[Rfam]
RNA sequence: GGGGAAUUAGCUCAGCUGGCUAGAGCAUCUGCCCUGCACGCAGAGGGUCAAGGGUUCGAAUCCCUCAUUCUCCA
Numbered sequence: 001g002g003g004g005a006a007u008u009a010g011c012u013c014a015g016c017u018g019g020c021u022a023g024a025g026c027a028u029c030u031g032c033c034c035u036g037c038a039c040g041c042a043g044a045g046g047g048u049c050a051a052g053g054g055u056u057c058g059a060a061u062c063c064c065u066c067a068u069u070c071u072c073c074a
Stems, first nucleotide, its partner, number of pairs: 001073007010026004028044005051065004

Rfam assigns this 74-nucleotide RNA from Firmicutes bacterium CAG:884 to the family "tRNA". Rfam links the family to the GO term triplet codon-amino acid adaptor activity.